The family of this 83-nucleotide RNA sequence from Ptilorrhoa leucosticta is "Small nucleolar RNA SNORD72".
[Rfam]
RNA sequence: CAAUUGUUAAUAAUGUGUUUCUUUUUAAAAAGGUCUGAAUGGGUGAUUUCUGUAGUGAUUUCAGUGUGUUACUGAGAUAAAUU
Dot-bracket structure: .(.(((((...................................................................))))).).
Taxonomically the source falls in Ptilorrhoa (Eukaryota, Euteleostomi, Aves, Cinclosomatidae).
The family has 16 seed sequences and 726 matches in Rfam 15.1.
For this family Rfam cites "RNomics: an experimental approach that identifies 201 candidates for novel, small, non-messenger RNAs in mouse" (Huttenhofer et al., EMBO J, 2001).
It is annotated as a C/D-box small nucleolar RNA.
snoRNA HBII-240 belongs to the CD family of snoRNAs. It is the human orthologue of the mouse MBII-240 and is predicted to guide 2'O-ribose methylation of the large 28S rRNA at residue U4590.